[Rfam]
Nucleotides: 098
Stems, first nucleotide, its partner, number of pairs: 012037002017032006040092004047088002049084003056078004
Number, partner (000 for none) and nucleotide at each position: 001000g002000u003000a004000c005000g006000a007000a008000a009000a010000a011000g012037g013036c014000a015000a016000a017032a018031u019030c020029a021028c022027u023000g024000a025000a026000a027022a028021g029020u030019g031018a032017u033000g034000a035000c036013g037012c038000a039000a040092a041091g042090c043089u044000a045000u046000a047088g048087g049084g050083a051082c052000u053000a054000a055000a056078u057077u058076g059075g060000c061000a062000u063000g064000a065000a066000g067000u068000c069000u070000a071000g072000u073000g074000u075059c076058c077057a078056a079000a080000a081000u082051g083050u084049u085000a086000g087048c088047c089043a090042g091041c092040u093000a094000c095000c096000g097000c098000c

Shown here is a 98-nucleotide sequence from Paenibacillus pectinilyticus, a member of the family "c-di-GMP-I riboswitch aptamer".
The match comes from Rfam's covariance-model search (75 bits).